Overview: The family of this 122-nucleotide RNA sequence from Enterovirus betacoxsackie is "Enteroviral 3' UTR element". NCBI's taxonomy places the organism under Viruses, Orthornavirae, Pisoniviricetes, Enterovirus betacoxsackie, Enterovirus B. For this family Rfam cites "Structural requirements of the higher order RNA kissing element in the enteroviral 3'UTR" (Wang et al., Nucleic Acids Res, 1999). It is annotated as a cis-regulatory element. About the family: This RNA structure is found in the 3' UTR of various enteroviruses. The overall structure forms the origin of replication (OriR) for the initiation of (-) strand RNA synthesis. Pseudoknots have also been predicted in this structure. Its family is annotated with RNA replication in the Gene Ontology. It is one of the family's seed sequences. The family's consensus secondary structure was predicted with PFOLD.
RNA sequence: AAAUGGUUGGACUCCUUUUAGAUUAGAGGCAAUUUCAAUUGAUUAGAAUUGGCUUAACCCUACCGCACCAACCGAACUAGACAACGGUGCGGUAGGGGUAAAUUAUCCGCAUUCGGUGCGGG
Numbered sequence: 001a002a003a004u005g006g007u008u009g010g011a012c013u014c015c016u017u018u019u020a021g022a023u024u025a026g027a028g029g030c031a032a033u034u035u036c037a038a039u040u041g042a043u044u045a046g047a048a049u050u051g052g053c054u055u056a057a058c059c060c061u062a063c064c065g066c067a068c069c070a071a072c073c074g075a076a077c078u079a080g081a082c083a084a085c086g087g088u089g090c091g092g093u094a095g096g097g098g099u100a101a102a103u104u105a106u107c108c109g110c111a112u113u114c115g116g117u118g119c120g121g122g
Stems, first nucleotide, its partner, number of pairs: 024057001026055003030051006037044002058097012071117006107121004